[Rfam]
RNA sequence: GUGCCUCAAAUUAAUGAGUAAGGAUAAUAUAGGAUUUGGGUGACACCUAAUCCACCAUAUACUACGGUAUAUGAGGUUCACCAAUAUUUGACAGGAUACAGAACGGCCUUGGGAGUUUUCUGCCUACUUUGCGGAGAUCACCCAUGAUUGCUGGUCUCCU
Numbered sequence: 001g002u003g004c005c006u007c008a009a010a011u012u013a014a015u016g017a018g019u020a021a022g023g024a025u026a027a028u029a030u031a032g033g034a035u036u037u038g039g040g041u042g043a044c045a046c047c048u049a050a051u052c053c054a055c056c057a058u059a060u061a062c063u064a065c066g067g068u069a070u071a072u073g074a075g076g077u078u079c080a081c082c083a084a085u086a087u088u089u090g091a092c093a094g095g096a097u098a099c100a101g102a103a104c105g106g107c108c109u110u111g112g113g114a115g116u117u118u119u120c121u122g123c124c125u126a127c128u129u130u131g132c133g134g135a136g137a138u139c140a141c142c143c144a145u146g147a148u149u150g151c152u153g154g155u156c157u158c159c160u
Stems, first nucleotide, its partner, number of pairs: 004023003008019001032053005038047002054077003058073004093160003100157003104153003110146002113143001115141002119135005
Shown here is a 160-nucleotide RNA sequence from Dentiscutata erythropus, a member of the family "U12 minor spliceosomal RNA".